This 81-nucleotide sequence from Drosophila melanogaster belongs to the Rfam family "mir-4 microRNA precursor family".
[Rfam]
RNA sequence: UUGCAAUUAGUUUCUUUGGUCGUCCAGCCUUAGGUGAUUUUUCCGGUCAUAAAGCUAGACAACCAUUGAAGUUCGUUGUGG
Numbered sequence: 001u002u003g004c005a006a007u008u009a010g011u012u013u014c015u016u017u018g019g020u021c022g023u024c025c026a027g028c029c030u031u032a033g034g035u036g037a038u039u040u041u042u043c044c045g046g047u048c049a050u051a052a053a054g055c056u057a058g059a060c061a062a063c064c065a066u067u068g069a070a071g072u073u074c075g076u077u078g079u080g081g
Stems, first nucleotide, its partner, number of pairs: 003079005009073006017065004022060003026056003030052003033048003

About this RNA: The source organism's lineage runs through Eukaryota, Insecta, Endopterygota, Schizophora and Sophophora. The sequence is in the family's curated seed alignment. Its family is annotated with miRNA-mediated post-transcriptional gene silencing and RISC complex in the Gene Ontology.